[Rfam]
This 111-nucleotide sequence from Actinoplanes octamycinicus belongs to the Rfam family "TPP riboswitch aptamer (THI element)".
It scores 64 bits against the family's covariance model.

RNA sequence: AACAACACCCACGGGAGUCCGGGCACCGGGCUGAGAGGGGGGCUGAUGCGGCCCCCGACCGUCGAACCUGAUCCGGGUCAUGCCGGCGCAGGGAGGAGCGUGUCAUGGACG
Numbered sequence: 001a002a003c004a005a006c007a008c009c010c011a012c013g014g015g016a017g018u019c020c021g022g023g024c025a026c027c028g029g030g031c032u033g034a035g036a037g038g039g040g041g042g043c044u045g046a047u048g049c050g051g052c053c054c055c056c057g058a059c060c061g062u063c064g065a066a067c068c069u070g071a072u073c074c075g076g077g078u079c080a081u082g083c084c085g086g087c088g089c090a091g092g093g094a095g096g097a098g099c100g101u102g103u104c105a106u107g108g109a110c111g
Base pairs, nucleotide, nucleotide: 009096010095011062012061013060014059017031018030019029020028021027038056039055040054041053042052043051044050045049067092068091069090070089073086074085075084076083
Dot-bracket structure: ........((((((..(((((.....)))))......((((((((...))))))))..))))....((((..((((......))))..))))..))...............

Lineage of the source: Bacteria > Bacillati > Actinomycetes > Micromonosporaceae > Actinoplanes.